[Rfam]
RNA sequence: CAGAAAUGGGGGUUCCUUGCAGCCCAAAACAUGGCUACUAAAGAAAAAUCCUCCUCUUUGUUUUGGACUGAAGGGAGCUCCUAUUUCUU
Dot-bracket structure: ......((((((((((((..((.(((((.................................))))).))..))))))))))))......